[Rfam]
RNA sequence: CGAAGAUAGUGAUGAUUGUUUAAUUCCGAUUAAUUCAUGAAUGGAAUAUAAACCUCCUACUCAUUCUGA
Numbered sequence: 001c002g003a004a005g006a007u008a009g010u011g012a013u014g015a016u017u018g019u020u021u022a023a024u025u026c027c028g029a030u031u032a033a034u035u036c037a038u039g040a041a042u043g044g045a046a047u048a049u050a051a052a053c054c055u056c057c058u059a060c061u062c063a064u065u066c067u068g069a
Stems, first nucleotide, its partner, number of pairs: 006064002009061001027044001030039001

The record is a 69-nucleotide sequence from Centaurea solstitialis, which matches "Small nucleolar RNA Z105" in Rfam. A reference for the family is Chen et al. (2003), "The high diversity of snoRNAs in plants: identification and comparative study of 120 snoRNA genes from Oryza sativa", Nucleic Acids Res. Pairs were carried over by alignment from the consensus structure, which was predicted with CMfinder. The family's RNA type in Rfam is C/D-box small nucleolar RNA. Rfam links the family to the GO terms nucleolus and RNA processing.